RNA sequence: UGAGACCUCUGGGUUCUGAGCUGUGAUGUUGCUCUCGAGCUGGGAUCUCCGGGGUCUUGGU
Numbered sequence: 001u002g003a004g005a006c007c008u009c010u011g012g013g014u015u016c017u018g019a020g021c022u023g024u025g026a027u028g029u030u031g032c033u034c035u036c037g038a039g040c041u042g043g044g045a046u047c048u049c050c051g052g053g054g055u056c057u058u059g060g061u
Base pairs, nucleotide, nucleotide: 001059002058003057004056005055006054007053008052009051011049012048013047015045016044017043019041020040021039022038

Rfam assigns this 61-nucleotide RNA sequence from Macaca mulatta to the family "mir-769 microRNA precursor family". Gene Ontology terms of the family: RISC complex and miRNA-mediated post-transcriptional gene silencing.